[Rfam]
U4atac minor spliceosomal RNA: a 132-nucleotide RNA sequence from Pangasianodon hypophthalmus.
Rfam describes the family as follows. U4atac is an essential component of the minor U12-type spliceosome complex which is required for removal of the rarer class of eukaryotic introns (AT-AC, U12-type).
Its family is annotated with mRNA 5'-splice site recognition, pre-mRNA 5'-splice site binding and U4atac snRNP in the Gene Ontology.
RNA sequence: ACCUUCCUUGUCUUGGGGUGGAUUGGGCUGUUCAAUGAACGUGUAGUGAGAACAUCCCUGCUAACACCUGACCAACACAACCAGCAUCACCUGAGUGUUUACUACUCGGGCUACGGUGCAAUUUUUGGAAAC
Numbered sequence: 001a002c003c004u005u006c007c008u009u010g011u012c013u014u015g016g017g018g019u020g021g022a023u024u025g026g027g028c029u030g031u032u033c034a035a036u037g038a039a040c041g042u043g044u045a046g047u048g049a050g051a052a053c054a055u056c057c058c059u060g061c062u063a064a065c066a067c068c069u070g071a072c073c074a075a076c077a078c079a080a081c082c083a084g085c086a087u088c089a090c091c092u093g094a095g096u097g098u099u100u101a102c103u104a105c106u107c108g109g110g111c112u113a114c115g116g117u118g119c120a121a122u123u124u125u126u127g128g129a130a131a132c
Stems, first nucleotide, its partner, number of pairs: 006018004021061001023060001025058001027056001029054005039047002084119005091110002093107004
The match comes from Rfam's covariance-model search (92 bits).